[Rfam]
Nucleotides: 229
Base pairs, nucleotide, nucleotide: 018190020188021185022184023183024182025181030141031139032138033137034136035135036134040097041096043094044093045092046091047090048089052085055084056083057082058081099133100132101131103129104128105126108123109122110121111120112119113118143177144176145175146174196216197215198214199213200212201211
Number, partner (000 for none) and nucleotide at each position: 001000c002000c003000u004000a005000u006000a007000g008000u009000g010000c011000c012000g013000c014000c015000a016000g017000c018190g019000g020188u021185c022184c023183c024182c025181u026000a027000u028000c029000u030141g031139g032138g033137g034136c035135c036134c037000a038000a039000a040097g041096c042000c043094c044093c045092a046091g047090c048089c049000a050000c051000a052085g053000c054000a055084g056083u057082c058081g059000g060000u061000u062000u063000c064000g065000c066000g067000g068000a069000u070000u071000c072000c073000g074000c075000g076000a077000g078000u079000c080000c081058u082057g083056a084055u085052c086000u087000c088000a089048g090047g091046c092045u093044g094043g095000a096041g097040c098000c099133c100132a101131u102000g103129g104128c105126c106000u107000u108123g109122c110121c111120g112119g113118c114000u115000c116000c117000g118113g119112u120111c121110g122109g123108c124000c125000u126105g127000c128104g129103c130000c131101a132100u133099g134036g135035g136034g137033c138032c139031c140000a141030c142000u143177g144176a145175c146174a147000c148000c149000g150000u151000g152000c153000u154000c155000c156000c157000g158000u159000c160000u161000c162000g163000g164000c165000g166000g167000u168000u169000g170000c171000c172000g173000c174146u175145g176144u177143c178000u179000c180000c181025a182024g183023g184022g185021g186000u187000g188020g189000a190018c191000c192000a193000c194000c195000a196216c197215c198214u199213c200212g201211a202000c203000c204000c205000c206000g207000u208000c209000c210000c211201u212200c213199g214198a215197g216196g217000a218000a219000c220000g221000u222000c223000u224000c225000g226000a227000u228000g229000a

About this RNA
The family of this 229-nucleotide RNA sequence from Cyanobium sp. PCC 7001 is "psaA RNA". It is annotated as a cis-regulatory element.